A member of the RNA family "mir-10 microRNA precursor family" from Gadus morhua, 75 nucleotides long. On this family, see Lee and Ambros, Science 2001: "An extensive class of small RNAs in Caenorhabditis elegans". NCBI's taxonomy places the organism under Eukaryota, Teleostomi, Neoteleostei, Paracanthopterygii, Gadus. The base pairs follow the family's consensus structure, which was predicted with PFOLD.

[Rfam]
RNA sequence: CUAUGUGUACCCUGUAGAACCGAAUUUGUGUUCAGUACAUAUCAUCGCAAAUACGUCUCUACAGGAAUACAUGGG
Numbered sequence: 001c002u003a004u005g006u007g008u009a010c011c012c013u014g015u016a017g018a019a020c021c022g023a024a025u026u027u028g029u030g031u032u033c034a035g036u037a038c039a040u041a042u043c044a045u046c047g048c049a050a051a052u053a054c055g056u057c058u059c060u061a062c063a064g065g066a067a068u069a070c071a072u073g074g075g
Stems, first nucleotide, its partner, number of pairs: 002073006010065002016060003021055002024052007